The family of this 71-nucleotide RNA sequence from Bos taurus is "mir-2319 microRNA precursor family". NCBI's taxonomy places the organism under Eukaryota, Eumetazoa, Gnathostomata, Euteleostomi, Bos.

Nucleotides: 071
Base pairs, nucleotide, nucleotide: 001071002070003069004068005067006066007065008064009063010062011061012060013059014058015057016056017055018054019053020052021051022050023049024048025047026046027045028044029043030042
Number, partner (000 for none) and nucleotide at each position: 001071u002070g003069u004068a005067g006066c007065u008064a009063a010062g011061u012060g013059c014058c015057u016056a017055a018054u019053a020052c021051a022050g023049a024048g025047u026046a027045g028044c029043a030042u031000g032000a033000g034000a035000u036000c037000a038000u039000a040000a041000g042030a043029u044028g045027u046026u047025a048024c049023u050022c051021u052020g053019u054018a055017u056016u057015a058014g059013g060012c061011a062010c063009u064008u065007a066006g067005c068004u069003a070002c071001a